The record is a 204-nucleotide sequence from Lonsdalea quercina, which matches "GlmZ RNA activator of glmS mRNA" in Rfam. It scores 161 bits against the family's covariance model. Rfam describes the family as follows. This RNA was discovered in E. coli during a large scale screen. The sraJ gene was expressed in early logarithmic phase, but its level decreased with cell growth. Taxonomically the source falls in Lonsdalea (Bacteria, Gammaproteobacteria, Enterobacterales, Pectobacteriaceae). Pairs were carried over by alignment from the consensus structure, which is taken from published work.
[Rfam]
RNA sequence: GUAGAUGCUCAUUCCAUUUUCUAUGUUUGCUUCGGCUUCAUAACCCUGGGAAUGACGCAGAGCCCUUAUCGGUGCCUAUCGUCCACCAUGACAUGAAGACUAUUUCAUGAAACGUUUCGGACAUUACGUUGAGUGAGGCACCACCCCUAGUCUUUAAGACCUGAUGUUUAUUGACGCUUGUCGACGUUCGGCAAGCGUUUUUUU
Numbered sequence: 001g002u003a004g005a006u007g008c009u010c011a012u013u014c015c016a017u018u019u020u021c022u023a024u025g026u027u028u029g030c031u032u033c034g035g036c037u038u039c040a041u042a043a044c045c046c047u048g049g050g051a052a053u054g055a056c057g058c059a060g061a062g063c064c065c066u067u068a069u070c071g072g073u074g075c076c077u078a079u080c081g082u083c084c085a086c087c088a089u090g091a092c093a094u095g096a097a098g099a100c101u102a103u104u105u106c107a108u109g110a111a112a113c114g115u116u117u118c119g120g121a122c123a124u125u126a127c128g129u130u131g132a133g134u135g136a137g138g139c140a141c142c143a144c145c146c147c148u149a150g151u152c153u154u155u156a157a158g159a160c161c162u163g164a165u166g167u168u169u170a171u172u173g174a175c176g177c178u179u180g181u182c183g184a185c186g187u188u189c190g191g192c193a194a195g196c197g198u199u200u201u202u203u204u
Stems, first nucleotide, its partner, number of pairs: 001063002006059003009055004015050001017049001019042001027035001029033001071142007081122004092109004150160003173199011